Shown here is a 161-nucleotide RNA from Komagataella phaffii, a member of the family "Small nucleolar RNA snR4". On this family, see Balakin et al., Cell 1996: "The RNA world of the nucleolus: two major families of small RNAs defined by different box elements with related functions". Gene Ontology terms of the family: RNA processing and nucleolus. The family's RNA type in Rfam is C/D-box small nucleolar RNA. The organism belongs to Komagataella phaffii, within Eukaryota.

RNA sequence: AACUAAACAGUCGAUGAGGAAAGGCUAUAGUUAAUUCAUCCGUUGCAGUAUUUGACUCGGCAACUUUGGUGUGUUUUCGGAUACACCGAGGUUCUGGGCGCUGUGGAGAGCAUUGUGGCCUUUUUACCACCUUGACAAUGCUUAAUUGAGUUCUGAGGCUG
Dot-bracket structure: .......(((((..((((((..((((((..((.(..((.(...............(((((..(((((((.(((((....))))).))))))).))))).).))).))..).....))))))))))).((.........))................)))))